[Rfam]
RNA sequence: ACAGGCAGUACGCUGAAUGCUCCAUCGGGAGCGCGGGGGAACCAUAUUCGUGAAUCUCUUUCUUCGGGGUGAGAGCCGAAGGACUGGGACACUUGGGGUGAAUCGGUAGAGAAGGACCAUGGCCUUCUCCAUACUGUAGGGCGACUCUCACUGCCCGAAUCCGACAGCUAACCUCGCAAGCGUUGUGGAGAGAGGAG
Numbered sequence: 001a002c003a004g005g006c007a008g009u010a011c012g013c014u015g016a017a018u019g020c021u022c023c024a025u026c027g028g029g030a031g032c033g034c035g036g037g038g039g040a041a042c043c044a045u046a047u048u049c050g051u052g053a054a055u056c057u058c059u060u061u062c063u064u065c066g067g068g069g070u071g072a073g074a075g076c077c078g079a080a081g082g083a084c085u086g087g088g089a090c091a092c093u094u095g096g097g098g099u100g101a102a103u104c105g106g107u108a109g110a111g112a113a114g115g116a117c118c119a120u121g122g123c124c125u126u127c128u129c130c131a132u133a134c135u136g137u138a139g140g141g142c143g144a145c146u147c148u149c150a151c152u153g154c155c156c157g158a159a160u161c162c163g164a165c166a167g168c169u170a171a172c173c174u175c176g177c178a179a180g181c182g183u184u185g186u187g188g189a190g191a192g193a194g195g196a197g
Stems, first nucleotide, its partner, number of pairs: 011182004019032003033177006043095002096162003104136004139156004
RNA: c-di-AMP riboswitch aptamer (ydaO/yuaA leader)
Organism: Paenibacillus aquistagni